RNA sequence: UGAAGCCAACGACUAAUAGAGCUUGGUGGUCUAUCCUUUCUUCUUCGCUUCGUUGGCAGAUUAAAAUUUGUAUUAAAAUCCUUCUGCUUAAGUUUUAACAUCAAUAUUUCUGCAGAGAGGAAACGUACAAGACAUUU
Number, nucleotide and partner (000 for none) at each position: 001u000002g000003a000004a000005g057006c056007c055008a054009a053010c052011g000012a000013c000014u000015a000016a000017u000018a000019g042020a041021g040022c000023u000024u000025g036026g035027u033028g032029g000030u000031c000032u028033a027034u000035c026036c025037u000038u000039u000040c021041u020042u019043c000044u000045u000046c000047g000048c000049u000050u000051c000052g010053u009054u008055g007056g006057c005058a000059g000060a000061u000062u000063a000064a000065a000066a000067u131068u130069u129070g128071u127072a126073u125074u000075a000076a000077a000078a000079u000080c000081c120082u119083u118084c117085u116086g000087c000088u000089u000090a000091a000092g000093u000094u000095u000096u000097a000098a000099c000100a000101u000102c000103a000104a000105u000106a000107u000108u000109u000110c000111u000112g000113c000114a000115g000116a085117g084118a083119g082120g081121a000122a000123a000124c000125g073126u072127a071128c070129a069130a068131g067132a000133c000134a000135u000136u000137u000
Background:
The family of this 137-nucleotide RNA sequence from Nasonia vitripennis is "Small nucleolar RNA psi28S-1192". From the family's description: psi28S-1192 is a member of the H/ACA class of snoRNA. This family is responsible for guiding the modification of uridine 1192 to pseudouridine in Drosophila 28S rRNA. It is annotated as an H/ACA-box small nucleolar RNA. The family has 15 seed sequences and 81 matches in Rfam 15.1. The family's consensus secondary structure was predicted with ILM. Rfam links the family to the GO terms RNA processing and nucleolus.